[Rfam]
RNA sequence: CACGAUUCGCAUCAAUACGCACACUUGACCGCAACGGUCCGGAUGGGUGCCCGACAUAAAAACGGGUUUCCGGACAGGGCAAGUGGAGGAUUAAC
Numbered sequence: 001c002a003c004g005a006u007u008c009g010c011a012u013c014a015a016u017a018c019g020c021a022c023a024c025u026u027g028a029c030c031g032c033a034a035c036g037g038u039c040c041g042g043a044u045g046g047g048u049g050c051c052c053g054a055c056a057u058a059a060a061a062a063c064g065g066g067u068u069u070c071c072g073g074a075c076a077g078g079g080c081a082a083g084u085g086g087a088g089g090a091u092u093a094a095c
Base pairs, nucleotide, nucleotide: 022085023084024083025082026081027080029078037075038074039073040072041071042070043069049067050066051065052064053063

A member of the RNA family "t44 RNA" from Marinihelvus fidelis, 95 nucleotides long. The family's RNA type in Rfam is small RNA. The match comes from Rfam's covariance-model search (51 bits).